The family of this 84-nucleotide sequence from Ornithorhynchus anatinus is "Small nucleolar RNA SNORD103/SNORD85".
[Rfam]
RNA sequence: GCCAGCGAUGAUGACACUCUUGCCCUCACGGAGAACUGCAUUCGCUGAGGAGAUCCUGUAUGUGCUCAGAAGAGCUGAGCUGGC
Number, nucleotide and partner (000 for none) at each position: 001g084002c083003c082004a081005g080006c079007g000008a000009u000010g000011a000012u000013g000014a000015c000016a000017c000018u000019c000020u000021u000022g000023c000024c000025c000026u000027c000028a000029c000030g000031g000032a000033g000034a000035a000036c000037u000038g000039c000040a000041u000042u000043c000044g000045c000046u000047g000048a000049g000050g000051a000052g000053a000054u000055c000056c000057u000058g000059u000060a000061u000062g000063u000064g000065c000066u000067c000068a000069g000070a000071a000072g000073a000074g000075c000076u000077g000078a000079g006080c005081u004082g003083g002084c001
Annotation
It is annotated as a C/D-box small nucleolar RNA. Rfam 15.1 lists 1,349 matches to the family in 595 species. For this family Rfam cites "RNomics: an experimental approach that identifies 201 candidates for novel, small, non-messenger RNAs in mouse" (Huttenhofer et al., EMBO J, 2001).